A member of the RNA family "MIR5269 microRNA precursor family" from Medicago truncatula, 79 nucleotides long. Rfam 15.1 lists 389 matches to the family in 6 species. The source organism's lineage runs through Eukaryota, Streptophyta, Euphyllophyta, Fabales and Medicago. It scores 62 bits against the family's covariance model.

Nucleotides: 079
Base pairs, nucleotide, nucleotide: 001079002078003077004076006074008072009071010070012068013067015065016064017063018062022057023056026052028050029049030048031047
Number, partner (000 for none) and nucleotide at each position: 001079u002078u003077g004076g005000u006074u007000u008072a009071a010070a011000a012068c013067a014000u015065u016064g017063u018062a019000g020000g021000u022057c023056u024000u025000c026052a027000c028050u029049u030048u031047g032000a033000a034000a035000a036000u037000u038000g039000a040000a041000c042000c043000c044000a045000c046000a047031u048030a049029a050028a051000a052026u053000a054000g055000u056023g057022g058000g059000a060000c061000a062018u063017a064016c065015a066000u067013u068012g069000a070010u071009u072008u073000u074006a075000u076004c077003c078002a079001a